The record is a 73-nucleotide RNA sequence from Pteruthius melanotis, which matches "Small nucleolar RNA SNORD56" in Rfam. It scores 44 bits against the family's covariance model.
[Rfam]
RNA sequence: CUGCUGUGAUGGUAACAUUUUUCGUCAACAGCAUCCCGCCCCGAGGGAAUGGUGACUCCUCUGGGCUGAGCAG
Numbered sequence: 001c002u003g004c005u006g007u008g009a010u011g012g013u014a015a016c017a018u019u020u021u022u023c024g025u026c027a028a029c030a031g032c033a034u035c036c037c038g039c040c041c042c043g044a045g046g047g048a049a050u051g052g053u054g055a056c057u058c059c060u061c062u063g064g065g066c067u068g069a070g071c072a073g
Base pairs, nucleotide, nucleotide: 002072003071004070008026009025010024011023

Source information:
On this family, see Galardi et al., Mol Cell Biol 2002: "Purified box C/D snoRNPs are able to reproduce site-specific 2'-O-methylation of target RNA in vitro". Gene Ontology terms of the family: nucleolus and RNA processing. The family's consensus secondary structure was predicted with PFOLD.